[Rfam]
RNA sequence: CGCUGGCAUAAUCUCAGCUGGCAACUGUGAGUGUGAGACAGCCUCGCAGGGGCUGCUGGGAUUGCGCCAAGC
Numbered sequence: 001c002g003c004u005g006g007c008a009u010a011a012u013c014u015c016a017g018c019u020g021g022c023a024a025c026u027g028u029g030a031g032u033g034u035g036a037g038a039c040a041g042c043c044u045c046g047c048a049g050g051g052g053c054u055g056c057u058g059g060g061a062u063u064g065c066g067c068c069a070a071g072c
Stems, first nucleotide, its partner, number of pairs: 004069004009064009020054003026048006
A member of the RNA family "mir-216 microRNA precursor family" from Hemibagrus wyckioides, 72 nucleotides long. On this family, see Shao et al., Gene 2008: "Identification of novel chicken microRNAs and analysis of their genomic organization". Rfam 15.1 lists 1,667 matches to the family in 655 species. It scores 58 bits against the family's covariance model. Its family is annotated with miRNA-mediated post-transcriptional gene silencing and RISC complex in the Gene Ontology.